RNA sequence: GCAUUGUUGGCCCUUGAUCGGGCUCUAUCAGCAGAACCCCAUUGUAAAUAACAUUAACUUAUUAAUUAUUUAGAUACUGUUUAUUUAUUUAUUUAUUUAUUUAUUGAAUGAGCAAGUACUGGUACAAACUACCUCAUGUUACCACACUACACUCAUUUUAACAGCACUUU
Numbered sequence: 001g002c003a004u005u006g007u008u009g010g011c012c013c014u015u016g017a018u019c020g021g022g023c024u025c026u027a028u029c030a031g032c033a034g035a036a037c038c039c040c041a042u043u044g045u046a047a048a049u050a051a052c053a054u055u056a057a058c059u060u061a062u063u064a065a066u067u068a069u070u071u072a073g074a075u076a077c078u079g080u081u082u083a084u085u086u087a088u089u090u091a092u093u094u095a096u097u098u099a100u101u102u103a104u105u106g107a108a109u110g111a112g113c114a115a116g117u118a119c120u121g122g123u124a125c126a127a128a129c130u131a132c133c134u135c136a137u138g139u140u141a142c143c144a145c146a147c148u149a150c151a152c153u154c155a156u157u158u159u160a161a162c163a164g165c166a167c168u169u170u
Stems, first nucleotide, its partner, number of pairs: 003028002006025001012022003030105002033102003041094001044092008055083001057081001060076004106158007115148002120144005128139002
RNA: Pestivirus 3' UTR SLIV, SLIII and SLII classical swine fever virus